[Rfam]
RNA sequence: UUGCACAGUGAACACCCAAGUGUGCUUCAUAGUUCCCUUGGUUUUAAUUCUGUGCUAGAAUAACCUGUGCUUUUCCUCUGCAUUGGAAGGAUUGGCAUUCCUUUUAUAUGUAUUCAGAAGGACAGUACAUUU
Numbered sequence: 001u002u003g004c005a006c007a008g009u010g011a012a013c014a015c016c017c018a019a020g021u022g023u024g025c026u027u028c029a030u031a032g033u034u035c036c037c038u039u040g041g042u043u044u045u046a047a048u049u050c051u052g053u054g055c056u057a058g059a060a061u062a063a064c065c066u067g068u069g070c071u072u073u074u075c076c077u078c079u080g081c082a083u084u085g086g087a088a089g090g091a092u093u094g095g096c097a098u099u100c101c102u103u104u105u106a107u108a109u110g111u112a113u114u115c116a117g118a119a120g121g122a123c124a125g126u127a128c129a130u131u132u
Base pairs, nucleotide, nucleotide: 003055004054005053006052007051008050010049014045016041017040018039019038020037022035024033025032026031057071058070060068061067062066077118078117079116080115081110082109083108085105086104087103088102089101090100091099
RNA: Small nucleolar RNA SNORA22